About this RNA: t44 RNA: a 93-nucleotide RNA sequence from Aquicella lusitana. The base pairs follow the family's consensus structure, which was predicted with LocARNA.
[Rfam]
RNA sequence: UAAGCAAUAACAACAGUCCACACGCGUGUCAAAACUCUUCGCCGGGUGCUUUAUUAAAAUAAAGUUGGCGGAAAGGGCAUGCGGAGGCUUAAC
Numbered sequence: 001u002a003a004g005c006a007a008u009a010a011c012a013a014c015a016g017u018c019c020a021c022a023c024g025c026g027u028g029u030c031a032a033a034a035c036u037c038u039u040c041g042c043c044g045g046g047u048g049c050u051u052u053a054u055u056a057a058a059a060u061a062a063a064g065u066u067g068g069c070g071g072a073a074a075g076g077g078c079a080u081g082c083g084g085a086g087g088c089u090u091a092a093c
Stems, first nucleotide, its partner, number of pairs: 023083008036074001038072006048065005

For this family Rfam cites "Transcriptome analysis of Escherichia coli using high-density oligonucleotide probe arrays" (Tjaden et al., Nucleic Acids Res, 2002). A search with the family's covariance model found it, with a score of 53 bits. This family consists of a number of bacterial RNA genes of between 135 and 170 bases in length. The t44 gene has been identified in several species of enteric bacteria but homologs have also been identified in Pseudomonas and Coxiella species. The t44 gene is found between the map and rpsB genes in all species in the full alignment apart from Shigella flexneri. The function of this RNA is unknown.